Overview: Rfam assigns this 105-nucleotide RNA sequence from Nyctereutes procyonoides to the family "mir-8834 microRNA precursor family". Taxonomically the source falls in Nyctereutes (Eukaryota, Opisthokonta, Eumetazoa, Theria). Its family is annotated with RISC complex and miRNA-mediated post-transcriptional gene silencing in the Gene Ontology.
[Rfam]
RNA sequence: AGGAGGAACAACCCCAGUGGUGGGGCCACCUCUAGAGCCCUGGAUUCAGCUCCCGCAGGAACCAUGGAGCUCUUGGUCUGCAGGGCCUGGAGGCUCCAGGGCGGG
Numbered sequence: 001a002g003g004a005g006g007a008a009c010a011a012c013c014c015c016a017g018u019g020g021u022g023g024g025g026c027c028a029c030c031u032c033u034a035g036a037g038c039c040c041u042g043g044a045u046u047c048a049g050c051u052c053c054c055g056c057a058g059g060a061a062c063c064a065u066g067g068a069g070c071u072c073u074u075g076g077u078c079u080g081c082a083g084g085g086c087c088u089g090g091a092g093g094c095u096c097c098a099g100g101g102c103g104g105g
Stems, first nucleotide, its partner, number of pairs: 002097004009089002012085003019078003023074003028071001030069005039059004